[Rfam]
RNA: Mu-gpT-DE RNA
RNA sequence: CCCUGACAGCCACAUGACGUGGUUGACCUUAACCCAGACAGGAGAAUCUCAUG
Numbered sequence: 001c002c003c004u005g006a007c008a009g010c011c012a013c014a015u016g017a018c019g020u021g022g023u024u025g026a027c028c029u030u031a032a033c034c035c036a037g038a039c040a041g042g043a044g045a046a047u048c049u050c051a052u053g
Base pairs, nucleotide, nucleotide: 002042003041004040005039007025008024009023010022011021